Shown here is a 54-nucleotide RNA sequence from Synaphobranchus kaupii, a member of the family "UnaL2 LINE 3' element". The eel long interspersed element (LINE) UnaL2 and its partner short interspersed element (SINE) share a conserved 3' tail containing a stem-loop that is critical for their retrotransposition. Presumably, the first step of retrotransposition is the recognition of their 3' tails by UnaL2-encoded reverse transcriptase. The solution structure of a 17-nucleotide RNA derived from the 3' tail of UnaL2 was determined by NMR. Rfam classes the family as a cis-regulatory element.
RNA sequence: UAAAAAAAUUAGUGUAAGUCGCUCUGGAUAAGAGUGUCUGCUAAAUGCCUGCAC
Numbered sequence: 001u002a003a004a005a006a007a008a009u010u011a012g013u014g015u016a017a018g019u020c021g022c023u024c025u026g027g028a029u030a031a032g033a034g035u036g037u038c039u040g041c042u043a044a045a046u047g048c049c050u051g052c053a054c
Base pairs, nucleotide, nucleotide: 013043014041015040016039020036021035022034023033024032025031
The match comes from Rfam's covariance-model search (63 bits).